Rfam assigns this 362-nucleotide RNA from Clonostachys rosea to the family "Nuclear RNase P". It scores 57 bits against the family's covariance model.

RNA sequence: GCCCUCUUCAACGCUGCGUUUCCAUGCUACACACAGAGACCCCUCGCUUCUUCUUUGAAGCGAGGGCUCUCCUAUUUUGCAUGUGGGAAAUUCGGAGAAUGCUUCAACCUAUCCUCCCUCUCGUCCUCCCCGACGAUGCAUAGGUCUGCCAGUGAUGGCCUCGCGUCAAUCGACGCCUGCAGUUGACAUCAGAAAUCUCAGAGCCGGCGGCCCUGGAGCCUGGCUCCUCGGUUCGACGUGCCUCUAUGGGAAGUCUCUGCGAAGCUUGUUGCCUCAACUUGAGUGCGAUACGCGGCGUGUUGCUUCGCGCUCUUCGGAGUCAGCGAGCUUCAUAACUCAAUUCCGGUCAUUCUCUAGAGGGC
Numbered sequence: 001g002c003c004c005u006c007u008u009c010a011a012c013g014c015u016g017c018g019u020u021u022c023c024a025u026g027c028u029a030c031a032c033a034c035a036g037a038g039a040c041c042c043c044u045c046g047c048u049u050c051u052u053c054u055u056u057g058a059a060g061c062g063a064g065g066g067c068u069c070u071c072c073u074a075u076u077u078u079g080c081a082u083g084u085g086g087g088a089a090a091u092u093c094g095g096a097g098a099a100u101g102c103u104u105c106a107a108c109c110u111a112u113c114c115u116c117c118c119u120c121u122c123g124u125c126c127u128c129c130c131c132g133a134c135g136a137u138g139c140a141u142a143g144g145u146c147u148g149c150c151a152g153u154g155a156u157g158g159c160c161u162c163g164c165g166u167c168a169a170u171c172g173a174c175g176c177c178u179g180c181a182g183u184u185g186a187c188a189u190c191a192g193a194a195a196u197c198u199c200a201g202a203g204c205c206g207g208c209g210g211c212c213c214u215g216g217a218g219c220c221u222g223g224c225u226c227c228u229c230g231g232u233u234c235g236a237c238g239u240g241c242c243u244c245u246a247u248g249g250g251a252a253g254u255c256u257c258u259g260c261g262a263a264g265c266u267u268g269u270u271g272c273c274u275c276a277a278c279u280u281g282a283g284u285g286c287g288a289u290a291c292g293c294g295g296c297g298u299g300u301u302g303c304u305u306c307g308c309g310c311u312c313u314u315c316g317g318a319g320u321c322a323g324c325g326a327g328c329u330u331c332a333u334a335a336c337u338c339a340a341u342u343c344c345g346g347u348c349a350u351u352c353u354c355u356a357g358a359g360g361g362c
Stems, first nucleotide, its partner, number of pairs: 001362004011353001015295001020290001023083004036069003040065002093345005102264004148159004163176004179260004185255003200245003297333003302328004
The organism belongs to Clonostachys, within Eukaryota.